[Rfam]
RNA sequence: AAACAGCCCCUUAUGUUUUGAUUGUUUUGCAGUUUUGGACCCCUGAGGGAAAAAGAAAAAAAAAUUGACAUGUGGCACCUCACUUACGGUGCCACAUCAGCGUUGACCGAGUCAACAAUGGACUGAAGGUCCAAAACUGCCAAAGAAUCAAAACAUAGGGGGCUGUUU
Numbered sequence: 001a002a003a004c005a006g007c008c009c010c011u012u013a014u015g016u017u018u019u020g021a022u023u024g025u026u027u028u029g030c031a032g033u034u035u036u037g038g039a040c041c042c043c044u045g046a047g048g049g050a051a052a053a054a055g056a057a058a059a060a061a062a063a064a065u066u067g068a069c070a071u072g073u074g075g076c077a078c079c080u081c082a083c084u085u086a087c088g089g090u091g092c093c094a095c096a097u098c099a100g101c102g103u104u105g106a107c108c109g110a111g112u113c114a115a116c117a118a119u120g121g122a123c124u125g126a127a128g129g130u131c132c133a134a135a136a137c138u139g140c141c142a143a144a145g146a147a148u149c150a151a152a153a154c155a156u157a158g159g160g161g162g163c164u165g166u167u168u
Stems, first nucleotide, its partner, number of pairs: 001168002004165005012157012025144003029140013044125002070097002073094007

The record is a 168-nucleotide RNA sequence from Medicago truncatula, which matches "MIR2619 microRNA precursor family" in Rfam. The source organism's lineage runs through Eukaryota, Streptophytina, Embryophyta, Euphyllophyta and Medicago.